A member of the RNA family "TPP riboswitch aptamer (THI element)" from Veillonella criceti, 109 nucleotides long.

[Rfam]
RNA sequence: UAGAAAUUUCAGGGGAGCUUAUGAAUGUAGGCUGAGAGGAAGUCAUCUAACUUCGACCCUUAUACCUGAUACGGAUAAUGCCGUCGUAGGAAGAUGUUAUAGACGACAA
Dot-bracket structure: .....((.((((((..(((((......)))))......(((((......)))))..))))....((((..((((......))))..))))..)).))............